[Rfam]
Rfam assigns this 132-nucleotide RNA sequence from Orycteropus afer to the family "Small nucleolar RNA SNORA1".
Rfam 15.1 lists 1,282 matches to the family in 515 species.
About the family: ACA1 is a member of the H/ACA class of snoRNA that guide the sites of modification of uridines to pseudouridines.
It is annotated as an H/ACA-box small nucleolar RNA.
The family's consensus secondary structure was predicted with PFOLD.
A search with the family's covariance model found it, with a score of 142 bits.
RNA sequence: AGCCUCAUUCUAUAUGAAAAUGGACACCAUGAUCAUGGUGUCCAGAGAAUGUCAGUGUGGCUAAAUUAAGACAGGUUUUGCUUCCAUCACAGUAAAUUAAUUGCAGUGGUGACAAUGAGACCUGUAACACUU
Numbered sequence: 001a002g003c004c005u006c007a008u009u010c011u012a013u014a015u016g017a018a019a020a021u022g023g024a025c026a027c028c029a030u031g032a033u034c035a036u037g038g039u040g041u042c043c044a045g046a047g048a049a050u051g052u053c054a055g056u057g058u059g060g061c062u063a064a065a066u067u068a069a070g071a072c073a074g075g076u077u078u079u080g081c082u083u084c085c086a087u088c089a090c091a092g093u094a095a096a097u098u099a100a101u102u103g104c105a106g107u108g109g110u111g112a113c114a115a116u117g118a119g120a121c122c123u124g125u126a127a128c129a130c131u132u
Base pairs, nucleotide, nucleotide: 002061003060004059006057007056008055021044022043023042024041025040026039027038071125072124073123074122075121085111086110087109088108089107090106
Dot-bracket structure: .(((.(((............(((((((..........)))))))..........))).))).........(((((.........((((((...............)))))).........))))).......